RNA sequence: CUGGUCACUGGUGAUGGAGCCCACCUGAAAUCUUGCGAUUUCGAACUGCCAGCGCGCUGAUGGCCCCUGCGGAUUC
Numbered sequence: 001c002u003g004g005u006c007a008c009u010g011g012u013g014a015u016g017g018a019g020c021c022c023a024c025c026u027g028a029a030a031u032c033u034u035g036c037g038a039u040u041u042c043g044a045a046c047u048g049c050c051a052g053c054g055c056g057c058u059g060a061u062g063g064c065c066c067c068u069g070c071g072g073a074u075u076c
Base pairs, nucleotide, nucleotide: 010025011024012023013022016067017066019064020063021062048057049056
RNA: Fluoride riboswitch aptamer (crcB RNA motif)